Description: A member of the RNA family "Bacterial small subunit ribosomal RNA" from Chloroflexus aurantiacus, 600 nucleotides of a longer RNA. The family is grouped with related families in Rfam's "SSU clan". NCBI's taxonomy places the organism under Bacteria, Chloroflexales, Chloroflexineae, Chloroflexus, Chloroflexus aurantiacus. It is one of the family's seed sequences.

[Rfam]
RNA sequence: UGACGGGGGCCCGCACAAGCAGCGGAGCGUGUGGUUUAAUUCGACGCAACACGAAGAACCUUACCCGGACUUGACAUGGUGCUGCAUCCCCUGGAAACAGGGGCGCCUUUGAGGGUGCACCACAGGUGCUGCAUGGCUGUCGUCAGCUCGUGUCGUGAGAUGUUGGGUUCAGUCCCGCAACGAGCGCAACCCGUGUCGGUAGUUACAGGUGUCUACCGAGACUGCCGCCGUGACCGGCGGAGGAAGGCGCGGAUGACGUCAAGUCAGCAUGGCCCUUACGUCCGGGGCGACACACACGCUACAAUGGCCACGACAAUGCGUUGCCAAGCCGCAAGGUGGAGCUAAUCGCCUAAACGUGGUCUCAGUGCAGAUCGGGGGCUGCAACUCGCCCCCGUGAAGGCGGAGUUGCUAGUAACCGCGUAUCAGCCAUGGCGCGGUGAAUACGUUCCCGGGCCUUGUACACACCGCCCGUCACGUCAUGGGAGUGGCCAAUGCUUGAAGUCCGUGUGCUAACCCCAGUCGGGGAGGCAGCGGCCGAGGGCAGGGGCCGCGACUGGGACGAAGUCGUAACAAGGUAGCCGUACCGGAAGGUGCGGCUGG
Number, nucleotide and partner (000 for none) at each position: 001u462002g461003a459004c458005g457006g000007g456008g455009g454010c453011c452012c451013g450014c000015a446016c445017a000018a000019g409020c408021a407022g406023c405024g302025g000026a300027g299028c298029g297030u296031g295032u294033g293034g291035u290036u000037u000038a000039a000040u055041u054042c053043g052044a000045c000046g000047c000048a000049a000050c000051a000052c043053g042054a041055a040056g000057a000058a000059c000060c000061u000062u000063a000064c286065c285066c284067g283068g282069a281070c280071u000072u000073g000074a000075c000076a000077u122078g121079g000080u119081g118082c117083u000084g000085c000086a000087u000088c103089c102090c101091c100092u099093g098094g000095a000096a000097a000098c093099a092100g091101g090102g089103g088104c000105g000106c114107c113108u112109u000110u000111g000112a108113g107114g106115g000116u000117g082118c081119a080120c000121c078122a077123c000124a000125g275126g274127u000128g273129c272130u271131g270132c000133a000134u269135g268136g264137c263138u262139g260140u000141c258142g257143u000144c000145a000146g185147c184148u183149c182150g181151u180152g161153u160154c159155g000156u000157g000158a000159g154160a153161u152162g000163u000164u177165g176166g175167g174168u000169u000170c000171a000172g000173u000174c167175c166176c165177g164178c000179a000180a151181c150182g149183a148184g147185c146186g000187c000188a000189a000190c000191c252192c251193g250194u249195g000196u219197c218198g217199g216200u215201a214202g213203u000204u000205a000206c000207a000208g000209g000210u000211g000212u000213c202214u201215a200216c199217c198218g197219a196220g000221a000222c243223u242224g000225c240226c239227g238228c237229c236230g000231u000232g000233a000234c000235c000236g229237g228238c227239g226240g225241a000242g223243g222244a000245a000246g000247g000248c000249g194250c193251g192252g191253a000254u000255g000256a000257c142258g141259u000260c139261a000262a138263g137264u136265c000266a000267g000268c135269a134270u131271g130272g129273c128274c126275c125276u000277u000278a000279c000280g070281u069282c068283c067284g066285g065286g064287g000288c000289g000290a035291c034292a000293c033294a032295c031296a030297c029298g028299c027300u026301a000302c024303a000304a000305u000306g361307g360308c359309c358310a357311c356312g355313a000314c000315a000316a000317u000318g349319c348320g347321u000322u000323g342324c341325c000326a000327a000328g337329c336330c335331g000332c000333a000334a000335g330336g329337u328338g000339g000340a000341g324342c323343u000344a000345a000346u000347c320348g319349c318350c000351u000352a000353a000354a000355c312356g311357u310358g309359g308360u307361c306362u000363c000364a000365g000366u000367g000368c399369a000370g000371a000372u000373c394374g393375g392376g391377g390378g389379c388380u000381g000382c000383a000384a000385c000386u000387c000388g379389c378390c377391c376392c375393c374394g373395u000396g000397a000398a000399g368400g000401c000402g000403g000404a000405g023406u022407u021408g020409c019410u000411a000412g000413u000414a000415a438416c437417c436418g435419c434420g433421u432422a000423u000424c000425a000426g000427c000428c000429a000430u000431g000432g421433c420434g419435c418436g417437g416438u415439g000440a000441a000442u000443a000444c000445g016446u015447u000448c000449c000450c013451g012452g011453g010454c009455c008456u007457u005458g004459u003460a000461c002462a001463c000464a000465c574466c000467g571468c000469c000470c567471g566472u000473c000474a000475c561476g560477u559478c558479a000480u556481g555482g554483g000484a000485g551486u550487g549488g548489c547490c546491a000492a000493u543494g542495c541496u540497u000498g000499a000500a000501g536502u000503c534504c533505g532506u531507g000508u530509g529510c528511u527512a000513a000514c525515c524516c523517c522518a000519g000520u000521c000522g517523g516524g515525g514526a000527g511528g510529c509530a508531g506532c505533g504534g503535c000536c501537g000538a000539g000540g496541g495542c494543a493544g000545g000546g490547g489548c488549c487550g486551c485552g000553a000554c482555u481556g480557g000558g478559a477560c476561g475562a000563a000564g000565u000566c471567g470568u000569a000570a000571c467572a000573a000574g465575g000576u599577a598578g597579c596580c595581g594582u593583a592584c591585c590586g000587g000588a000589a000590g585591g584592u583593g582594c581595g580596g579597c578598u577599g576600g000